Shown here is a 111-nucleotide RNA from Pedobacter sp. Hv1, a member of the family "SAM riboswitch aptamer (S box leader)".
It scores 77 bits against the family's covariance model.
RNA sequence: UACUUAUAAAGAAAGACCGAGGGAGAGGCCCGAUAACGUCUUAGCAACCUGAUACUAACCGGAAGUAAAAAGGUGCUAAUUCCUACUCUUGAUAAAAGAGAAAGAUAAGUA
Numbered sequence: 001u002a003c004u005u006a007u008a009a010a011g012a013a014a015g016a017c018c019g020a021g022g023g024a025g026a027g028g029c030c031c032g033a034u035a036a037c038g039u040c041u042u043a044g045c046a047a048c049c050u051g052a053u054a055c056u057a058a059c060c061g062g063a064a065g066u067a068a069a070a071a072g073g074u075g076c077u078a079a080u081u082c083c084u085a086c087u088c089u090u091g092a093u094a095a096a097a098g099a100g101a102a103a104g105a106u107a108a109g110u111a
Stems, first nucleotide, its partner, number of pairs: 001111007013042005021031003026084003043077004048073002050069001081103001086100005